[Rfam]
RNA sequence: GCUUUUAUUAAGCUUAGUUCCCGGCAUCAGCCGGGAAGCGGGGGAACCAACGUAAUUGGGGCGUAUCAUUCCGGCCGGAAUGUAGGGAACCAUCUAUCCCGAGCCCGUCAGCUAACCUCGUAGGCUUUGGAUGGGUCAAAC
Numbered sequence: 001g002c003u004u005u006u007a008u009u010a011a012g013c014u015u016a017g018u019u020c021c022c023g024g025c026a027u028c029a030g031c032c033g034g035g036a037a038g039c040g041g042g043g044g045a046a047c048c049a050a051c052g053u054a055a056u057u058g059g060g061g062c063g064u065a066u067c068a069u070u071c072c073g074g075c076c077g078g079a080a081u082g083u084a085g086g087g088a089a090c091c092a093u094c095u096a097u098c099c100c101g102a103g104c105c106c107g108u109c110a111g112c113u114a115a116c117c118u119c120g121u122a123g124g125c126u127u128u129g130g131a132u133g134g135g136u137c138a139a140a141c
Base pairs, nucleotide, nucleotide: 011126012125013124014123018037019036020035021034022033023032024031025030038121039120040119041118042117043116048058049057059106060105061104067082068081069080070079085100086099087098088097
Rfam assigns this 141-nucleotide RNA sequence from Cohnella xylanilytica to the family "c-di-AMP riboswitch aptamer (ydaO/yuaA leader)". Rfam's curators write: This family represents a conserved RNA structure found upstream of the ydaO and yuaA genes in Bacillus subtilis and related genes in other bacteria. The ydaO/yuaA element is thought to act as a genetic 'off' switch for the ydaO and yuaA genes in its native state. The match comes from Rfam's covariance-model search (84 bits). Taxonomically the source falls in Cohnella (Bacteria, Bacillati, Bacillota, Bacilli).